[Rfam]
Description
This 409-nucleotide RNA from Pusillimonas sp. ANT_WB101 belongs to the Rfam family "Bacterial RNase P class A". The family is grouped with related families in Rfam's "RNaseP clan".

RNA sequence: GAGGCAGGUUGGGCAAUCGCGGCGCCAUGCGCGUCGAGGAAGGUCCGGACUCCGCAGGGCAGGGUAGCGGCUAACAGCCGUCCGGCGGGUUGGCACAGCAAUGUGGUAACCCGCCGAGGACUAGGGCCACAGAGACGAGUCGGUGGCGAGGGCAGGCGCAAGCCUGCACCAGUACGGCUACUUCCGUGCUGCAUGGCUGGUAACGGCCAUGGCGUUAUCGGGUGAAACGCGGCAACCUCUACCCGGAGCAACAUCAAAUAGGCAUGUGCUGGCCUUCGGGCCAAAAGGGCGGCCCGCCCGAGCAUGCGGGUAGAUGGCUAGAGCUCGACAGCAAUGUCGAGCCCAGAUGAAUGAUUGCCCACUUGGCUUGCCAGGUGUACAGGAUCCGGCCUAUAGGCCUGUCUCACAC
Numbered sequence: 001g002a003g004g005c006a007g008g009u010u011g012g013g014c015a016a017u018c019g020c021g022g023c024g025c026c027a028u029g030c031g032c033g034u035c036g037a038g039g040a041a042g043g044u045c046c047g048g049a050c051u052c053c054g055c056a057g058g059g060c061a062g063g064g065u066a067g068c069g070g071c072u073a074a075c076a077g078c079c080g081u082c083c084g085g086c087g088g089g090u091u092g093g094c095a096c097a098g099c100a101a102u103g104u105g106g107u108a109a110c111c112c113g114c115c116g117a118g119g120a121c122u123a124g125g126g127c128c129a130c131a132g133a134g135a136c137g138a139g140u141c142g143g144u145g146g147c148g149a150g151g152g153c154a155g156g157c158g159c160a161a162g163c164c165u166g167c168a169c170c171a172g173u174a175c176g177g178c179u180a181c182u183u184c185c186g187u188g189c190u191g192c193a194u195g196g197c198u199g200g201u202a203a204c205g206g207c208c209a210u211g212g213c214g215u216u217a218u219c220g221g222g223u224g225a226a227a228c229g230c231g232g233c234a235a236c237c238u239c240u241a242c243c244c245g246g247a248g249c250a251a252c253a254u255c256a257a258a259u260a261g262g263c264a265u266g267u268g269c270u271g272g273c274c275u276u277c278g279g280g281c282c283a284a285a286a287g288g289g290c291g292g293c294c295c296g297c298c299c300g301a302g303c304a305u306g307c308g309g310g311u312a313g314a315u316g317g318c319u320a321g322a323g324c325u326c327g328a329c330a331g332c333a334a335u336g337u338c339g340a341g342c343c344c345a346g347a348u349g350a351a352u353g354a355u356u357g358c359c360c361a362c363u364u365g366g367c368u369u370g371c372c373a374g375g376u377g378u379a380c381a382g383g384a385u386c387c388g389g390c391c392u393a394u395a396g397g398c399c400u401g402u403c404u405c406a407c408a409c
Stems, first nucleotide, its partner, number of pairs: 001405010011394001012359007020036006041392003045389005050248004057295004062244005067081005082118001083116010119239002124237002126233003143159003147155001171190006191213001192211008252316004262307006287299004323342008